Rfam assigns this 138-nucleotide sequence to the family "Alphaproteobacterial sRNA ar35". The literature on the family includes a 2012 paper in RNA Biol by del Val et al., "A survey of sRNA families in alpha-proteobacteria". By type it is a small RNA. Rfam 15.1 lists 266 matches to the family in 153 species.
RNA sequence: AAACCUGUCAUGAGCUUGAAAUAAUUGGUGUCUAUACACACUUACGGAUUAGGAAAUUCGCCUGACUUUUGACCACGGAUGAACUGGCAUUAGUUGAGGCGUUUCAUGGAAGGUCGGGAUAUCCCGGCCUUUUCCAUU
Numbered sequence: 001a002a003a004c005c006u007g008u009c010a011u012g013a014g015c016u017u018g019a020a021a022u023a024a025u026u027g028g029u030g031u032c033u034a035u036a037c038a039c040a041c042u043u044a045c046g047g048a049u050u051a052g053g054a055a056a057u058u059c060g061c062c063u064g065a066c067u068u069u070u071g072a073c074c075a076c077g078g079a080u081g082a083a084c085u086g087g088c089a090u091u092a093g094u095u096g097a098g099g100c101g102u103u104u105c106a107u108g109g110a111a112g113g114u115c116g117g118g119a120u121a122u123c124c125c126g127g128c129c130u131u132u133u134c135c136a137u138u
Base pairs, nucleotide, nucleotide: 004053005052006051007049008048009047011044012043013042014041059101060100061099062098063097064095065094066093067092070089071088073087074086075085108133109132110131111130112129113128114127115126116125117124